[Rfam]
This 114-nucleotide RNA from Actinidia chinensis belongs to the Rfam family "MIR396 microRNA precursor family".
Gene Ontology terms of the family: miRNA-mediated post-transcriptional gene silencing and RISC complex.
The base pairs follow the family's consensus structure, which was predicted with WAR.
The literature on the family includes a 2004 paper in Mol Cell by Jones-Rhoades and Bartel, "Computational identification of plant microRNAs and their targets, including a stress-induced miRNA".

RNA sequence: UGUCAUGCUUUUCCACAGCUUUCUUGAACUUCAACUAUUGUUCUUUUUGCUCUCUCUCUCUCUCUCGAUCGAUCAAUUGUGGAAGUUCAAGAAAGCUGUGGGAAGACAUGGCAA
Numbered sequence: 001u002g003u004c005a006u007g008c009u010u011u012u013c014c015a016c017a018g019c020u021u022u023c024u025u026g027a028a029c030u031u032c033a034a035c036u037a038u039u040g041u042u043c044u045u046u047u048u049g050c051u052c053u054c055u056c057u058c059u060c061u062c063u064c065u066c067g068a069u070c071g072a073u074c075a076a077u078u079g080u081g082g083a084a085g086u087u088c089a090a091g092a093a094a095g096c097u098g099u100g101g102g103a104a105g106a107c108a109u110g111g112c113a114a
Stems, first nucleotide, its partner, number of pairs: 003111005013101003017097006024090004029085004